[Rfam]
RNA: TPP riboswitch aptamer (THI element)
RNA sequence: UGUCAUCCACACGGGAGCCCUAUUGCAGGGGCUGAGAUCGGGCUGAGGCAGCCUGCGACCGUCGAACCUGUCCGGGUAAUGCCGGCGAAGGAAGAGGAACCCCAUCAUGA
Number, nucleotide and partner (000 for none) at each position: 001u000002g000003u000004c000005a000006u098007c097008c096009a000010c094011a062012c061013g060014g059015g000016a000017g032018c031019c030020c029021u028022a000023u000024u000025g000026c000027a000028g021029g020030g019031g018032c017033u000034g000035a000036g000037a000038u000039c055040g054041g053042g052043c051044u050045g049046a000047g000048g000049c045050a044051g043052c042053c041054u040055g039056c000057g000058a000059c014060c013061g012062u011063c000064g000065a000066a000067c091068c090069u089070g000071u000072c085073c084074g083075g082076g000077u000078a000079a000080u000081g000082c075083c074084g073085g072086c000087g000088a000089a069090g068091g067092a000093a000094g010095a000096g008097g007098a006099a000100c000101c000102c000103c000104a000105u000106c000107a000108u000109g000110a000